[Rfam]
RNA sequence: UACUUAUCCAGAAAGACCGAGGGAAUGGCCCUGUGACGUCUUAGCAACCUCUAUUGAAUAUAAAAGGUGCUAACUCCAACUCCUCCGGGAGAACGAUAAGAA
Numbered sequence: 001u002a003c004u005u006a007u008c009c010a011g012a013a014a015g016a017c018c019g020a021g022g023g024a025a026u027g028g029c030c031c032u033g034u035g036a037c038g039u040c041u042u043a044g045c046a047a048c049c050u051c052u053a054u055u056g057a058a059u060a061u062a063a064a065a066g067g068u069g070c071u072a073a074c075u076c077c078a079a080c081u082c083c084u085c086c087g088g089g090a091g092a093a094c095g096a097u098a099a100g101a102a
Base pairs, nucleotide, nucleotide: 001102003100004099005098006097007096008095013042014041015040016039017038021031022030023029026078027077028076043071044070045069046068048067049066050064052062053061080091081090082089083088